[Rfam]
RNA sequence: AAUGGAACCUGUAGAGAACCAACCACGUGGACAGCGGAGAACACCCCUUGUCCACACAUUGCAGUGUUCCUACAUAAACAUGGAGGUCUCUGUCUGACUUAGGACAGCCACAAAGUCAAAUUGUUCCCUCAAUACAGU
Numbered sequence: 001a002a003u004g005g006a007a008c009c010u011g012u013a014g015a016g017a018a019c020c021a022a023c024c025a026c027g028u029g030g031a032c033a034g035c036g037g038a039g040a041a042c043a044c045c046c047c048u049u050g051u052c053c054a055c056a057c058a059u060u061g062c063a064g065u066g067u068u069c070c071u072a073c074a075u076a077a078a079c080a081u082g083g084a085g086g087u088c089u090c091u092g093u094c095u096g097a098c099u100u101a102g103g104a105c106a107g108c109c110a111c112a113a114a115g116u117c118a119a120a121u122u123g124u125u126c127c128c129u130c131a132a133u134a135c136a137g138u
Base pairs, nucleotide, nucleotide: 004070005069006068009064010063011062012061027055028054029053030052031051032050037049038048039047083130084129085128086127090123092121093120096117097116098115099114100113102111